[Rfam]
Small nucleolar RNA snoR77: a 134-nucleotide RNA from Tripterygium wilfordii. It scores 78 bits against the family's covariance model. The base pairs follow the family's consensus structure, which was predicted with WAR.
RNA sequence: AGGCAGCCACUUUGCAGUACAUAUUGGGCAAAGAAGGUGUUAAACUGCUCGUAUAUUGAAUUUGUUUGGGCUUUUCAGAGUUGCUGAGGGAGAUUGAUUUCCUUGAAGCUUGGCCUAGAAAGCCCAAGUACAUU
Numbered sequence: 001a002g003g004c005a006g007c008c009a010c011u012u013u014g015c016a017g018u019a020c021a022u023a024u025u026g027g028g029c030a031a032a033g034a035a036g037g038u039g040u041u042a043a044a045c046u047g048c049u050c051g052u053a054u055a056u057u058g059a060a061u062u063u064g065u066u067u068g069g070g071c072u073u074u075u076c077a078g079a080g081u082u083g084c085u086g087a088g089g090g091a092g093a094u095u096g097a098u099u100u101c102c103u104u105g106a107a108g109c110u111u112g113g114c115c116u117a118g119a120a121a122g123c124c125c126a127a128g129u130a131c132a133u134u
Base pairs, nucleotide, nucleotide: 002041003040004039005038007037008036010033011032012031013030014029015028065128066127067126070123071122072121077116078115081112083109084108085107088101089100090099

Record summary: The family has 5 seed sequences and 649 matches in Rfam 15.1. A reference for the family is Marker et al. (2002), "Experimental RNomics: identification of 140 candidates for small non-messenger RNAs in the plant Arabidopsis thaliana", Curr Biol. Rfam classes the family as an H/ACA-box small nucleolar RNA.